[Rfam]
RNA sequence: GGUGAUCCACACCAGUGUCUCGGACAGCGGUUCGAUUCCGCUCAGCUCCAUUCCAUUUCUUAUUCCUGAUGGGGCUGCAAUGGUUUCGACGGGGCAUAAGGAGGGUGACUGAAGCCCGCUCUGUUCAGUCAGAGCAAACUCGUAAACGCGAACAACAUCGUUCGUUUCUCCCGUCAGACCGCCCCUGUGGCUGCCUGA
Number, nucleotide and partner (000 for none) at each position: 001g110002g109003u108004g000005a106006u000007c000008c000009a000010c000011a000012c000013c000014a000015g000016u096017g095018u094019c000020u092021c091022g090023g000024a000025c000026a042027g041028c040029g039030g038031u000032u000033c000034g000035a000036u000037u000038c030039c029040g028041c027042u026043c077044a076045g075046c074047u073048c072049c071050a000051u000052u000053c000054c000055a000056u000057u000058u000059c000060u000061u000062a000063u000064u000065c000066c000067u000068g000069a000070u000071g049072g048073g047074g046075c045076u044077g043078c000079a000080a000081u000082g000083g000084u000085u000086u000087c000088g000089a000090c022091g021092g020093g000094g018095c017096a016097u000098a000099a000100g000101g000102a000103g000104g000105g000106u005107g000108a003109c002110u001111g000112a000113a000114g000115c000116c000117c000118g000119c000120u000121c000122u000123g000124u000125u000126c000127a000128g000129u000130c000131a000132g000133a000134g000135c000136a000137a000138a000139c000140u000141c000142g000143u000144a000145a000146a000147c000148g000149c000150g000151a000152a000153c000154a000155a000156c000157a000158u000159c000160g000161u000162u000163c000164g000165u000166u000167u000168c000169u000170c000171c000172c000173g000174u000175c000176a000177g000178a000179c000180c000181g000182c000183c000184c000185c000186u000187g000188u000189g000190g000191c000192u000193g000194c000195c000196u000197g000198a000